Rfam assigns this 118-nucleotide sequence from Luteipulveratus mongoliensis to the family "SAM (S-adenosyl methionine) riboswitch aptamer". The organism belongs to Luteipulveratus, within Bacteria. The base pairs follow the family's consensus structure, which is taken from published work. A search with the family's covariance model found it, with a score of 109 bits. Its Rfam clan is "SAM clan". SAM-IV is a mRNA element that regulates gene expression via direct sensing of S-adenosylmethionine (SAM or AdoMet). SAM-IV riboswitches share conserved nucleotide positions with the previously described SAM-I riboswitches sequence analysis and molecular recognition experiments suggest that SAM-I and SAM-IV riboswitches share similar ligand binding sites, but have different scaffolds.
[Rfam]
RNA sequence: GGUCAUGAGUGUCAGCGCGAAGCCCCGGCUUGCUGACCGGCAACCCUCCAACCGCGGUGGGGUGCCCCGGGUGAUGACCCGGCCGGCGGGCGAAGGCACCCGACGGCAAGCGCGGGCC
Numbered sequence: 001g002g003u004c005a006u007g008a009g010u011g012u013c014a015g016c017g018c019g020a021a022g023c024c025c026c027g028g029c030u031u032g033c034u035g036a037c038c039g040g041c042a043a044c045c046c047u048c049c050a051a052c053c054g055c056g057g058u059g060g061g062g063u064g065c066c067c068c069g070g071g072u073g074a075u076g077a078c079c080c081g082g083c084c085g086g087c088g089g090g091c092g093a094a095g096g097c098a099c100c101c102g103a104c105g106g107c108a109a110g111c112g113c114g115g116g117c118c
Base pairs, nucleotide, nucleotide: 001079002078003077004076009038011037012036013035014034015033016032021030022029039066040065041064044062045061046060048057049056082107083106084105085104087102088101089100090099